[Rfam]
This 80-nucleotide RNA sequence from Cnephaeus nilssonii belongs to the Rfam family "mir-9186 microRNA precursor family".
RNA sequence: UAGGAGGAGGUUGGCGGCAUCACUAGUACUGAGGUAAUGGCUGCCCACAGUACCAGACGUGCCGCGCCCCUCCCCCAACA
Numbered sequence: 001u002a003g004g005a006g007g008a009g010g011u012u013g014g015c016g017g018c019a020u021c022a023c024u025a026g027u028a029c030u031g032a033g034g035u036a037a038u039g040g041c042u043g044c045c046c047a048c049a050g051u052a053c054c055a056g057a058c059g060u061g062c063c064g065c066g067c068c069c070c071u072c073c074c075c076c077a078a079c080a
Base pairs, nucleotide, nucleotide: 001078003076004075007072008071009070010069014065015064016063017062018061019060020059023056024055026053027052028051029050030049031048

Rfam links the family to the GO terms miRNA-mediated post-transcriptional gene silencing and RISC complex. A search with the family's covariance model found it, with a score of 78 bits.